[Rfam]
RNA: Streptomyces sRNA 4677
RNA sequence: GUCGCCGGUCCCCCCUGCGCUCCCCAAGCACUACCCACCGGGCAUAAAGCACCCCACCAAGCCCCACCCCUCCCUCCCGCCGGGCAAACUCACUCCGUGGAGUGAAUAUGCCAACUUGGCUGGAUUCGGGACGGGUUGUCUGCCCUACGCUCAACGCCAGCAGCACGCAGACACACCCAUCCCAGACAUGCGACGGCCCUCGCGGGGACUGCCAUCCCACUGCGAGGGCCUGACCACCGAGGAAGAGGAAACCUUCCCG
Numbered sequence: 001g002u003c004g005c006c007g008g009u010c011c012c013c014c015c016u017g018c019g020c021u022c023c024c025c026a027a028g029c030a031c032u033a034c035c036c037a038c039c040g041g042g043c044a045u046a047a048a049g050c051a052c053c054c055c056a057c058c059a060a061g062c063c064c065c066a067c068c069c070c071u072c073c074c075u076c077c078c079g080c081c082g083g084g085c086a087a088a089c090u091c092a093c094u095c096c097g098u099g100g101a102g103u104g105a106a107u108a109u110g111c112c113a114a115c116u117u118g119g120c121u122g123g124a125u126u127c128g129g130g131a132c133g134g135g136u137u138g139u140c141u142g143c144c145c146u147a148c149g150c151u152c153a154a155c156g157c158c159a160g161c162a163g164c165a166c167g168c169a170g171a172c173a174c175a176c177c178c179a180u181c182c183c184a185g186a187c188a189u190g191c192g193a194c195g196g197c198c199c200u201c202g203c204g205g206g207g208a209c210u211g212c213c214a215u216c217c218c219a220c221u222g223c224g225a226g227g228g229c230c231u232g233a234c235c236a237c238c239g240a241g242g243a244a245g246a247g248g249a250a251a252c253c254u255u256c257c258c259g
Stems, first nucleotide, its partner, number of pairs: 007238003017076001019074001090105006119166001121153003195230005201224003205218004241257005